Overview: Rfam assigns this 75-nucleotide RNA sequence from Panagrolaimus sp. PS1159 to the family "mir-86 microRNA precursor family". A search with the family's covariance model found it, with a score of 78 bits. Rfam links the family to the GO terms miRNA-mediated post-transcriptional gene silencing and RISC complex. On this family, see Lau et al., Science 2001: "An abundant class of tiny RNAs with probable regulatory roles in Caenorhabditis elegans". Lineage of the source: Eukaryota > Metazoa > Eumetazoa > Chromadorea > Panagrolaimus. The family has 9 seed sequences and 60 matches in Rfam 15.1.

RNA sequence: UUACCAGUUAAGUGAAUGCUUUGCCACAGUCUUAGAAAAUGAUUAAGCUGGGCUGGGGUUCGCUUAAACUGGGAA
Numbered sequence: 001u002u003a004c005c006a007g008u009u010a011a012g013u014g015a016a017u018g019c020u021u022u023g024c025c026a027c028a029g030u031c032u033u034a035g036a037a038a039a040u041g042a043u044u045a046a047g048c049u050g051g052g053c054u055g056g057g058g059u060u061c062g063c064u065u066a067a068a069c070u071g072g073g074a075a
Stems, first nucleotide, its partner, number of pairs: 004072003009066009019057003023053003027050003